[Rfam]
Nucleotides: 215
Base pairs, nucleotide, nucleotide: 021096022095023094024093025092029088030087031086032085033084034083106138107137108136109135110134115126116125117124118123139154140153141152143150159205160204161203162202163201164200165199173190174189175188176187177186178185179184
Number, partner (000 for none) and nucleotide at each position: 001000a002000c003000c004000a005000u006000a007000a008000u009000u010000a011000u012000a013000g014000c015000g016000c017000c018000c019000g020000u021096a022095c023094a024093a025092u026000g027000g028000c029088a030087a031086g032085c033084u034083g035000g036000a037000a038000u039000u040000u041000g042000c043000g044000u045000a046000g047000a048000u049000u050000u051000a052000u053000g054000u055000c056000u057000u058000a059000g060000a061000g062000c063000a064000g065000a066000a067000g068000a069000u070000g071000u072000a073000a074000u075000a076000g077000c078000a079000a080000g081000c082000a083034u084033a085032g086031c087030u088029u089000u090000a091000a092025a093024u094023u095022g096021u097000c098000g099000a100000c101000g102000a103000g104000g105000a106138a107137g108136a109135c110134a111000g112000u113000g114000a115126u116125c117124g118123g119000a120000u121000u122000a123118u124117c125116g126115g127000c128000g129000g130000a131000u132000g133000c134110u135109g136108u137107c138106u139154c140153g141152g142000a143150u144000a145000a146000g147000g148000u149000c150143a151000g152141u153140c154139g155000u156000a157000a158000g159205u160204u161203u162202a163201c164200a165199a166000g167000g168000u169000a170000a171000a172000a173190c174189a175188u176187u177186g178185a179184g180000g181000u182000g183000a184179c185178u186177c187176g188175a189174u190173g191000c192000a193000c194000a195000a196000a197000g198000u199165u200164u201163g202162u203161a204160a205159a206000c207000a208000g209000a210000c211000c212000a213000a214000a215000g
Description
glmS glucosamine-6-phosphate activated ribozyme aptamer: a 215-nucleotide RNA from Staphylococcus simulans. Gene Ontology terms of the family: regulation of gene expression and catalytic activity. Rfam's curators write: This entry contains a glucosamine-6-phosphate activated ribozyme that is found in the mRNA for GlmS. GlmS is an enzyme that uses fructose-6-phosphate and glutamine to generate glucosamine-6-phosphate. The ribozyme catalyses self cleavage of the glmS mRNA that is thought to regulate GlmS activity. Taxonomically the source falls in Staphylococcus (Bacteria, Bacillati, Bacillota, Staphylococcaceae). Rfam classes the family as a riboswitch. A search with the family's covariance model found it, with a score of 98 bits.